[Rfam]
RNA sequence: UAUCCCUAUGAUGAUCGAUUUGGUAUAUAAAAGUAGUGGACUGAAUCUUACUGAUGAAUUAUCAAUUCUGAGGGAUA
Numbered sequence: 001u002a003u004c005c006c007u008a009u010g011a012u013g014a015u016c017g018a019u020u021u022g023g024u025a026u027a028u029a030a031a032a033g034u035a036g037u038g039g040a041c042u043g044a045a046u047c048u049u050a051c052u053g054a055u056g057a058a059u060u061a062u063c064a065a066u067u068c069u070g071a072g073g074g075a076u077a
Stems, first nucleotide, its partner, number of pairs: 001077006
Dot-bracket structure: ((((((.................................................................))))))

This 77-nucleotide sequence from Cucurbita maxima belongs to the Rfam family "Small nucleolar RNA R21".
The family's consensus secondary structure was predicted with PFOLD.
A search with the family's covariance model found it, with a score of 66 bits.
By type it is a C/D-box small nucleolar RNA.
Its family is annotated with nucleolus and RNA processing in the Gene Ontology.
Lineage of the source: Eukaryota > Viridiplantae > Tracheophyta > fabids > Cucurbita.